[Rfam]
RNA sequence: UGCCGGCUUUCCAUCAGCCGGCGCGAAUACCGAAGAGGCUUGUCCUUCAUUGCCAGGUGUGCGGGCGGGAUCACUCCCAACCAAUCCACGGCAGCACAAUCGUUCUGAGCUUUUCGCCGCAUCGCGCCUCCAUCGCGUGACGUGGCCGAAGGGCGCUG
Numbered sequence: 001u002g003c004c005g006g007c008u009u010u011c012c013a014u015c016a017g018c019c020g021g022c023g024c025g026a027a028u029a030c031c032g033a034a035g036a037g038g039c040u041u042g043u044c045c046u047u048c049a050u051u052g053c054c055a056g057g058u059g060u061g062c063g064g065g066c067g068g069g070a071u072c073a074c075u076c077c078c079a080a081c082c083a084a085u086c087c088a089c090g091g092c093a094g095c096a097c098a099a100u101c102g103u104u105c106u107g108a109g110c111u112u113u114u115c116g117c118c119g120c121a122u123c124g125c126g127c128c129u130c131c132a133u134c135g136c137g138u139g140a141c142g143u144g145g146c147c148g149a150a151g152g153g154c155g156c157u158g
Base pairs, nucleotide, nucleotide: 001023002022003021004020005019006018007017008016037054038053039052061138062137063136106121107120109117110116
Record summary:
Shown here is a 158-nucleotide sequence from Rhodopseudomonas sp., a member of the family "speF leader". The organism belongs to Rhodopseudomonas, within Bacteria. Pairs were carried over by alignment from the consensus structure, which was predicted with RNAalifold. For this family Rfam cites "Evidence for a second class of S-adenosylmethionine riboswitches and other regulatory RNA motifs in alpha-proteobacteria" (Corbino et al., Genome Biol, 2005). This family is a putative regulatory RNA structure that is found upstream of the speF gene encoding ornithine decarboxylase in Agrobacterium tumefaciens and other alpha-proteobacteria.